Eukaryotic small subunit ribosomal RNA: a 534-nucleotide part of an RNA from Powellomyces hirtus. On this family, see Yusupov et al., Science 2001: "Crystal structure of the ribosome at 5.5 A resolution". Taxonomically the source falls in Powellomyces (Eukaryota, Opisthokonta, Chytridiomycotina, Spizellomycetales).
RNA sequence: CAGUUAAAAAGCUCGUAGUUGAAUUUUGGACCUGGCUGGGUGGUCUUGCCGAAAGGUUAGCACUGCUCUGGUUGGGUCUUUCCUUCUGGGGAACUUGUGUGCUCUUAAUUGUGGUGCGCAAGGGAUCCAGGACUUUUACUUUGAAAAAAUUAGAGUGUUUAAAGCAGGCUUACGCUUGAAUACAUUAGCAUGGAAUAAUAGAAUAGGACUUUGGUUCUAUUUUGUUGGUUUCUAGGACCGAAGUAAUGAUUAAUAGGGAUAGUUGGGGGCAUUAGUAUUUAAUUGUCAGAGGUGAAAUUCUUGGAUUUAUGAAAGACUAACUUCUGCGAAAGCAUUUGCCAAGGAUGUUUUCAUUAAUCAAGAACGAAAGUUAGGGGAUCGAAGACGAUCAGAUACCGUCGUAGUCUUAACCAUAAACUAUGCCGACUAGGGAUCGGACGACGUUAAAUAAUUGACUCGUUCGGCACCUUAUGAGAAAUCAAAGUUUUUGGGUUCCGGGGGGAGUAUGGUCGCAAGGCUGAAACUUAAAGGAAU
Numbered sequence: 001c002a003g004u005u006a007a008a009a010a011g012c013u014c015g016u017a018g019u020u021g022a023a024u025u026u027u028g029g030a031c032c033u034g035g036c037u038g039g040g041u042g043g044u045c046u047u048g049c050c051g052a053a054a055g056g057u058u059a060g061c062a063c064u065g066c067u068c069u070g071g072u073u074g075g076g077u078c079u080u081u082c083c084u085u086c087u088g089g090g091g092a093a094c095u096u097g098u099g100u101g102c103u104c105u106u107a108a109u110u111g112u113g114g115u116g117c118g119c120a121a122g123g124g125a126u127c128c129a130g131g132a133c134u135u136u137u138a139c140u141u142u143g144a145a146a147a148a149a150u151u152a153g154a155g156u157g158u159u160u161a162a163a164g165c166a167g168g169c170u171u172a173c174g175c176u177u178g179a180a181u182a183c184a185u186u187a188g189c190a191u192g193g194a195a196u197a198a199u200a201g202a203a204u205a206g207g208a209c210u211u212u213g214g215u216u217c218u219a220u221u222u223u224g225u226u227g228g229u230u231u232c233u234a235g236g237a238c239c240g241a242a243g244u245a246a247u248g249a250u251u252a253a254u255a256g257g258g259a260u261a262g263u264u265g266g267g268g269g270c271a272u273u274a275g276u277a278u279u280u281a282a283u284u285g286u287c288a289g290a291g292g293u294g295a296a297a298u299u300c301u302u303g304g305a306u307u308u309a310u311g312a313a314a315g316a317c318u319a320a321c322u323u324c325u326g327c328g329a330a331a332g333c334a335u336u337u338g339c340c341a342a343g344g345a346u347g348u349u350u351u352c353a354u355u356a357a358u359c360a361a362g363a364a365c366g367a368a369a370g371u372u373a374g375g376g377g378a379u380c381g382a383a384g385a386c387g388a389u390c391a392g393a394u395a396c397c398g399u400c401g402u403a404g405u406c407u408u409a410a411c412c413a414u415a416a417a418c419u420a421u422g423c424c425g426a427c428u429a430g431g432g433a434u435c436g437g438a439c440g441a442c443g444u445u446a447a448a449u450a451a452u453u454g455a456c457u458c459g460u461u462c463g464g465c466a467c468c469u470u471a472u473g474a475g476a477a478a479u480c481a482a483a484g485u486u487u488u489u490g491g492g493u494u495c496c497g498g499g500g501g502g503a504g505u506a507u508g509g510u511c512g513c514a515a516g517g518c519u520g521a522a523a524c525u526u527a528a529a530g531g532a533a534u
Stems, first nucleotide, its partner, number of pairs: 001497001003495001009494001011365001013363002018358003256352004260347002263344002268340004274318002278314003282310002285307001289300003323334001326333002370411006380404001384400004422493003425486003429469003434464008443456003473480002499526003508519004